[Rfam]
RNA: MIR6152 microRNA precursor family
RNA sequence: UAGACAAUUAUUGUAUUCGAUUGUAUUCACGAUACGUAAUUGUGAAUACAGUAACGCAAAUAGCGCAAACUGUGGUCUAUUCAGCUAUUUUUAAACGAAAAGUGAAUCAAUUAACACAAUAGACUCCU
Numbered sequence: 001u002a003g004a005c006a007a008u009u010a011u012u013g014u015a016u017u018c019g020a021u022u023g024u025a026u027u028c029a030c031g032a033u034a035c036g037u038a039a040u041u042g043u044g045a046a047u048a049c050a051g052u053a054a055c056g057c058a059a060a061u062a063g064c065g066c067a068a069a070c071u072g073u074g075g076u077c078u079a080u081u082c083a084g085c086u087a088u089u090u091u092u093a094a095a096c097g098a099a100a101a102g103u104g105a106a107u108c109a110a111u112u113a114a115c116a117c118a119a120u121a122g123a124c125u126c127c128u
Stems, first nucleotide, its partner, number of pairs: 003126002008122007016114002019112002022109002025107006035097003038090002040087001